Vault RNA: a 97-nucleotide RNA sequence from Clytia hemisphaerica. The match comes from Rfam's covariance-model search (45 bits). This family of RNAs are found as part of the enigmatic vault ribonucleoprotein complex. The complex consists of a major vault protein (MVP), two minor vault proteins (VPARP and TEP1), and several small untranslated RNA molecules. It has been suggested that the vault complex is involved in drug resistance. Pairs were carried over by alignment from the consensus structure, which is taken from published work. Taxonomically the source falls in Clytia (Eukaryota, Cnidaria, Hydrozoa, Hydroidolina).
RNA sequence: GUGCAGGCUUAGUCUAAAGGUUUCUUCUUUCAAUUAUUAUAUCAUCGCUCUAUGAGUGUGAGUCCAACCCCGACCUUGGACGCAGUCCUGUACUUUU
Numbered sequence: 001g002u003g004c005a006g007g008c009u010u011a012g013u014c015u016a017a018a019g020g021u022u023u024c025u026u027c028u029u030u031c032a033a034u035u036a037u038u039a040u041a042u043c044a045u046c047g048c049u050c051u052a053u054g055a056g057u058g059u060g061a062g063u064c065c066a067a068c069c070c071c072g073a074c075c076u077u078g079g080a081c082g083c084a085g086u087c088c089u090g091u092a093c094u095u096u097u
Stems, first nucleotide, its partner, number of pairs: 002092006012081004017077004025062003029058001